[Rfam]
RNA sequence: GGUUGCAAGUUUGAGGCCAUAGCAGAAGCGCUCAUCCUAUAGCAUGGUCUUUCAGAUUCCAGUGAAUCUGUGAAUUGUUCU
Numbered sequence: 001g002g003u004u005g006c007a008a009g010u011u012u013g014a015g016g017c018c019a020u021a022g023c024a025g026a027a028g029c030g031c032u033c034a035u036c037c038u039a040u041a042g043c044a045u046g047g048u049c050u051u052u053c054a055g056a057u058u059c060c061a062g063u064g065a066a067u068c069u070g071u072g073a074a075u076u077g078u079u080c081u
Base pairs, nucleotide, nucleotide: 013051014050015049016048017047018046021081022080024078026076027075028045030043031042032041053070054069055068056067057066058065059064

A member of the RNA family "Mammalian CPEB3 ribozyme" from Crocodylus porosus, 81 nucleotides long. Taxonomically the source falls in Crocodylus (Eukaryota, Amniota, Archosauria, Crocodylidae).